A member of the RNA family "mir-8834 microRNA precursor family" from Canis lupus, 106 nucleotides long. The source organism's lineage runs through Eukaryota, Bilateria, Euteleostomi, Tetrapoda and Canis lupus. It scores 71 bits against the family's covariance model.
[Rfam]
RNA sequence: AGGAGAAACAACCAUGGUGGCGGUGGCCAGCUCUGGAACCCUGGAUUCAGCCCCUGCAGGAAAUCUGGAGCUCUCCAUCUGCAGGGCCUAGAGACUCCAGGGCAGG
Numbered sequence: 001a002g003g004a005g006a007a008a009c010a011a012c013c014a015u016g017g018u019g020g021c022g023g024u025g026g027c028c029a030g031c032u033c034u035g036g037a038a039c040c041c042u043g044g045a046u047u048c049a050g051c052c053c054c055u056g057c058a059g060g061a062a063a064u065c066u067g068g069a070g071c072u073c074u075c076c077a078u079c080u081g082c083a084g085g086g087c088c089u090a091g092a093g094a095c096u097c098c099a100g101g102g103c104a105g106g
Stems, first nucleotide, its partner, number of pairs: 002098004010089001012086002019079002022076002025074002029072009040060004